The record is a 58-nucleotide RNA sequence from Nitratireductor aestuarii, which matches "terC RNA" in Rfam. Pairs were carried over by alignment from the consensus structure, which is taken from published work.
RNA sequence: UAAUCAGGCCGGGCCCCUCUGGUAGUUCCCGCAGGAACUGCGAUGUCGGACUGAAAGU
Numbered sequence: 001u002a003a004u005c006a007g008g009c010c011g012g013g014c015c016c017c018u019c020u021g022g023u024a025g026u027u028c029c030c031g032c033a034g035g036a037a038c039u040g041c042g043a044u045g046u047c048g049g050a051c052u053g054a055a056a057g058u
Stems, first nucleotide, its partner, number of pairs: 006052002009049004022041008
It is annotated as a cis-regulatory element.